[Rfam]
RNA: U12 minor spliceosomal RNA
RNA sequence: AUACCUUAAACUUAUGAAUGAGUAAGGAAAAUAACGAUUCGAGGUGACCCCCGGAUCCUCACUGCUAAUGUGAGACGAAUUUUUGAGCGGACAAAGGUUGCCCCAAAGGUGACCUGUCUACUUUGCGGGUUGCCUGGGAGUUGUGAUCUGCCUG
Numbered sequence: 001a002u003a004c005c006u007u008a009a010a011c012u013u014a015u016g017a018a019u020g021a022g023u024a025a026g027g028a029a030a031a032u033a034a035c036g037a038u039u040c041g042a043g044g045u046g047a048c049c050c051c052c053g054g055a056u057c058c059u060c061a062c063u064g065c066u067a068a069u070g071u072g073a074g075a076c077g078a079a080u081u082u083u084u085g086a087g088c089g090g091a092c093a094a095a096g097g098u099u100g101c102c103c104c105a106a107a108g109g110u111g112a113c114c115u116g117u118c119u120a121c122u123u124u125g126c127g128g129g130u131u132g133c134c135u136g137g138g139a140g141u142u143g144u145g146a147u148c149u150g151c152c153u154g
Stems, first nucleotide, its partner, number of pairs: 004027005036057006043050001058074005088154003092150001095149007104138001107135005113129005